[Rfam]
RNA sequence: CCAAUAGAACGCUAGGGUUCCGAUCGGUGUCCAGUUAUAUGGGCAAUCGAUGGCUGGUCCGAGAGCUUUCGACCUUUCGCCGCUUCGCAGGCAAGGGGUUACACGGCGGGAUAAAAGCCCGGGAGGC
Dot-bracket structure: ......(((.((..((...(((((((((.................))))))..).)).))....)).)))(((((((................))))))).(.[...(((.......))).)..]..
Numbered sequence: 001c002c003a004a005u006a007g008a009a010c011g012c013u014a015g016g017g018u019u020c021c022g023a024u025c026g027g028u029g030u031c032c033a034g035u036u037a038u039a040u041g042g043g044c045a046a047u048c049g050a051u052g053g054c055u056g057g058u059c060c061g062a063g064a065g066c067u068u069u070c071g072a073c074c075u076u077u078c079g080c081c082g083c084u085u086c087g088c089a090g091g092c093a094a095g096g097g098g099u100u101a102c103a104c105g106g107c108g109g110g111a112u113a114a115a116a117g118c119c120c121g122g123g124a125g126g127c
Stems, first nucleotide, its partner, number of pairs: 007070003011066002015060002020057002022054001023051006071100007102122001104125001108120003